[Rfam]
RNA: skipping-rope RNA
RNA sequence: GAUUAUUGAGGUAGAAAAGGUUCUCUACGCGCUACGAGAGUAGUUAACAGAAAUGAAGGGUUUGCCGUCCUUCCUUUAGUC
Numbered sequence: 001g002a003u004u005a006u007u008g009a010g011g012u013a014g015a016a017a018a019g020g021u022u023c024u025c026u027a028c029g030c031g032c033u034a035c036g037a038g039a040g041u042a043g044u045u046a047a048c049a050g051a052a053a054u055g056a057a058g059g060g061u062u063u064g065c066c067g068u069c070c071u072u073c074c075u076u077u078a079g080u081c
Stems, first nucleotide, its partner, number of pairs: 001081005008074001011028005019066003030050001031044004055073005
Dot-bracket structure: (((((..(..(((((...[[[..))))).(((((......)))).....)....(((((....]]]..))))))..)))))